[Rfam]
RNA sequence: GUGGGCUAUGGUGACAUGUGCCCGGUGACCAUCGGUGGCAAAAUUGUGGGGUCUUUGUGUGCCAUUGCUGGUGUACUGACCAUCGCACUACCUGUCCCUGUAAUUGUCUCCAAU
Numbered sequence: 001g002u003g004g005g006c007u008a009u010g011g012u013g014a015c016a017u018g019u020g021c022c023c024g025g026u027g028a029c030c031a032u033c034g035g036u037g038g039c040a041a042a043a044u045u046g047u048g049g050g051g052u053c054u055u056u057g058u059g060u061g062c063c064a065u066u067g068c069u070g071g072u073g074u075a076c077u078g079a080c081c082a083u084c085g086c087a088c089u090a091c092c093u094g095u096c097c098c099u100g101u102a103a104u105u106g107u108c109u110c111c112a113a114u
Stems, first nucleotide, its partner, number of pairs: 001114002004111002008107004014101003018097001020095002037077002040074001049063002
RNA: Potassium channel RNA editing signal